[Rfam]
Rfam assigns this 370-nucleotide part of an RNA from Carlito syrichta to the family "Eukaryotic large subunit ribosomal RNA". The organism belongs to Carlito, within Eukaryota.

RNA sequence: GGUAGUAGCAAAUAUUCAAAUGACAACUUUGAAGGCCAAAGUGGAGGAGGGUUCCAUGGGAACAGCAGUUGAACAUGGGUCAGUUGGUCUUGAGAGAUGGGUGAGUGCCAUUCCAAAGGGAUGGGUGAUGGCCUCCGUUGCCCUUGGCUGAUCGAAAGGGAGUUGGGUUCAGAUCCCCAAAUCUGGAGUGACAGGGAUGGGUGCUGUGAGAUAGGCAUGGGACCUGGGCACCUGGGCACCCGGGGGGCCAGCAGUGGCGGUGACUCUGGACACAAGCUGGGCCCUUCCCGUGUAUCUCCCCAGCUGUGGUGAGCAUUGCAAACACCCCCUGGGAGCCUGGUGGGCACCUGCGCACGCAGAGCACCUGGUA
Number, nucleotide and partner (000 for none) at each position: 001g000002g000003u000004a000005g000006u000007a000008g000009c000010a000011a000012a000013u000014a000015u033016u032017c031018a030019a029020a028021u000022g000023a000024c000025a000026a000027c000028u020029u019030u018031g017032a016033a015034g000035g000036c368037c367038a000039a000040a000041g000042u000043g299044g298045a297046g296047g000048a000049g288050g287051g000052u000053u000054c078055c077056a076057u075058g074059g000060g000061a000062a000063c071064a070065g000066c000067a000068g000069u000070u064071g063072a000073a000074c058075a057076u056077g055078g054079g000080u000081c000082a000083g000084u000085u000086g283087g282088u000089c159090u158091u000092g000093a000094g153095a152096g112097a111098u110099g000100g109101g108102u107103g000104a000105g000106u000107g102108c101109c100110a098111u097112u096113c000114c000115a000116a000117a000118g000119g000120g145121a144122u000123g000124g000125g000126u000127g000128a000129u000130g000131g000132c000133c000134u000135c000136c000137g000138u000139u000140g000141c000142c000143c000144u121145u120146g000147g000148c000149u000150g000151a000152u095153c094154g000155a000156a000157a000158g090159g089160g000161a000162g000163u180164u179165g178166g177167g176168u000169u000170c000171a000172g000173a000174u000175c000176c167177c166178c165179a164180a163181a000182u000183c280184u279185g278186g277187a000188g000189u000190g000191a000192c000193a000194g000195g000196g000197a000198u000199g000200g000201g000202u000203g000204c000205u000206g000207u000208g000209a000210g000211a000212u000213a000214g000215g000216c000217a000218u000219g000220g000221g000222a000223c000224c000225u000226g000227g000228g000229c000230a000231c000232c000233u000234g000235g000236g000237c000238a000239c000240c000241c000242g000243g000244g000245g000246g000247g000248c000249c000250a000251g000252c000253a000254g000255u000256g000257g000258c000259g000260g000261u000262g000263a000264c000265u000266c000267u000268g000269g000270a000271c000272a000273c000274a000275a000276g000277c186278u185279g184280g183281g000282c087283c086284c000285u000286u000287c050288c049289c000290g000291u000292g000293u000294a000295u000296c046297u045298c044299c043300c000301c000302a000303g000304c000305u000306g000307u000308g000309g000310u000311g000312a000313g000314c000315a000316u000317u000318g000319c000320a000321a000322a000323c000324a000325c000326c000327c000328c000329c000330u000331g000332g000333g000334a000335g000336c000337c000338u000339g000340g000341u000342g000343g000344g000345c000346a000347c000348c000349u000350g000351c000352g000353c000354a000355c000356g000357c000358a000359g000360a000361g000362c000363a000364c000365c000366u000367g037368g036369u000370a000
A search with the family's covariance model found it, with a score of 2022 bits. The literature on the family includes a 2002 paper in BMC Bioinformatics by Cannone et al., "The comparative RNA web (CRW) site: an online database of comparative sequence and structure information for ribosomal, intron, and other RNAs". The family's consensus secondary structure is taken from published work.